[Rfam]
About this RNA:
glmS glucosamine-6-phosphate activated ribozyme aptamer: a 164-nucleotide RNA sequence from Faecalibacterium sp. OM04-11BH. On this family, see Hampel and Tinsley, Biochemistry 2006: "Evidence for preorganization of the glmS ribozyme ligand binding pocket". Pairs were carried over by alignment from the consensus structure, which is taken from published work. The match comes from Rfam's covariance-model search (72 bits).

RNA sequence: AGCUGACGCAAAGCGCCGGGCCACACGGGUGACAGCCGUGAGGGUGACGAGGAGAGGAAUCAUCGAAAGAUUCGGCGGGUGUUUCUCCGGCUGAGGGCUAUACCAGCCGCAGAACAGGGCAAAAACCGGCAGCAAUACCGGAACAGAACCCUGCAAAGAAAGCC
Number, nucleotide and partner (000 for none) at each position: 001a000002g000003c000004u000005g000006a000007c000008g000009c000010a000011a000012a000013g000014c000015g000016c000017c000018g000019g000020g045021c044022c043023a000024c040025a039026c038027g000028g036029g000030u000031g000032a000033c000034a000035g000036c028037c000038g026039u025040g024041a000042g000043g022044g021045u020046g000047a000048c000049g000050a000051g000052g000053a000054g087055a086056g085057g084058a083059a000060u000061c000062a000063u075064c074065g073066a072067a000068a000069g000070a000071u000072u066073c065074g064075g063076c000077g000078g000079g000080u000081g000082u000083u058084u057085c056086u055087c054088c109089g108090g107091c106092u105093g104094a000095g000096g000097g000098c000099u000100a000101u000102a000103c000104c093105a092106g091107c090108c089109g088110c000111a000112g000113a000114a000115c153116a152117g151118g150119g000120c000121a000122a000123a000124a000125a000126c141127c140128g139129g138130c000131a136132g000133c000134a000135a000136u131137a000138c129139c128140g127141g126142a000143a000144c000145a000146g000147a000148a000149c000150c118151c117152u116153g115154c000155a000156a000157a000158g000159a000160a000161a000162g000163c000164c000